[Rfam]
RNA sequence: AUCCCAUCCAGAGCGGCUGAGAGACCUGGCUCGACGACGCCGCAGCAACCCCACGGGGGUGCUACCGCCAGGACCGAUGGAGG
Number, nucleotide and partner (000 for none) at each position: 001a000002u082003c000004c080005c079006a078007u077008c076009c000010a000011g000012a000013g043014c042015g041016g040017c039018u000019g000020a000021g032022a031023g030024a000025c000026c071027u070028g069029g068030c023031u022032c021033g000034a000035c000036g000037a000038c000039g017040c016041c015042g014043c013044a063045g062046c061047a060048a000049c059050c058051c056052c000053a000054c000055g000056g051057g000058g050059g049060u047061g046062c045063u044064a000065c000066c000067g075068c029069c028070a027071g026072g000073a000074c000075c067076g008077a007078u006079g005080g004081a000082g002083g000
The record is an 83-nucleotide sequence from Kineococcus aurantiacus, which matches "SAM riboswitch aptamer (S box leader)" in Rfam. The SAM riboswitch is found upstream of a number of genes which code for proteins involved in methionine or cysteine biosynthesis in Gram-positive bacteria. The SAM riboswitch acts at the level of transcription termination control. The predicted structure consists of a complex stem-loop region followed by a single stem loop terminator region. The source organism's lineage runs through Bacteria, Actinomycetota, Actinomycetes, Kineosporiaceae and Kineococcus. The family's consensus secondary structure is taken from published work.